[Rfam]
RNA sequence: CUACGAUAAUAGCAAACUAUUUGAAAAUUUAGGACGCAAAGCCACGGGUCUAAGGUCUAAGGACUAGGAUAGCCGGGUUACCGAA
Numbered sequence: 001c002u003a004c005g006a007u008a009a010u011a012g013c014a015a016a017c018u019a020u021u022u023g024a025a026a027a028u029u030u031a032g033g034a035c036g037c038a039a040a041g042c043c044a045c046g047g048g049u050c051u052a053a054g055g056u057c058u059a060a061g062g063a064c065u066a067g068g069a070u071a072g073c074c075g076g077g078u079u080a081c082c083g084a085a
Stems, first nucleotide, its partner, number of pairs: 012037002017032003022027001040079004045075003048070003055064003
The record is an 85-nucleotide RNA sequence from Oceanobacillus limi, which matches "c-di-GMP-I riboswitch aptamer" in Rfam. Pairs were carried over by alignment from the consensus structure, which is taken from published work.